The record is a 78-nucleotide RNA from Desulfobacter latus, which matches "c-di-GMP-I riboswitch aptamer" in Rfam. The source organism's lineage runs through Bacteria, Pseudomonadati, Thermodesulfobacteriota, Desulfobacterales and Desulfobacter.
[Rfam]
RNA sequence: AGCAGUCAAAGCCAAACCUGAUGAGAGUCAGGGGCGGAAAGCUACGAAUCCGAUUAAAUGGAUAGCCAGGUUGCCUGA
Numbered sequence: 001a002g003c004a005g006u007c008a009a010a011g012c013c014a015a016a017c018c019u020g021a022u023g024a025g026a027g028u029c030a031g032g033g034g035c036g037g038a039a040a041g042c043u044a045c046g047a048a049u050c051c052g053a054u055u056a057a058a059u060g061g062a063u064a065g066c067c068a069g070g071u072u073g074c075c076u077g078a
Base pairs, nucleotide, nucleotide: 012037013036017032018031019030020029021028022027040072041071042070043069046067048063049062050061051060052059